[Rfam]
RNA sequence: UACCCAUCCAGACCGGCCGAGGGACAAGCCCAAAGACGCCGGGGCAACCCAGACCUGCAUUGCAGGACUGAAGGUGCCAACUCUUGCGAGGGUCAGCGCUGAUCUCAGCGGCUCGACCUUUGAAAGAUGGGAU
Numbered sequence: 001u002a003c004c005c006a007u008c009c010a011g012a013c014c015g016g017c018c019g020a021g022g023g024a025c026a027a028g029c030c031c032a033a034a035g036a037c038g039c040c041g042g043g044g045c046a047a048c049c050c051a052g053a054c055c056u057g058c059a060u061u062g063c064a065g066g067a068c069u070g071a072a073g074g075u076g077c078c079a080a081c082u083c084u085u086g087c088g089a090g091g092g093u094c095a096g097c098g099c100u101g102a103u104c105u106c107a108g109c110g111g112c113u114c115g116a117c118c119u120u121u122g123a124a125a126g127a128u129g130g131g132a133u
Stems, first nucleotide, its partner, number of pairs: 003131006013042005021031003025086004043078004048074002050070003082125001087122008
RNA: SAM riboswitch aptamer (S box leader)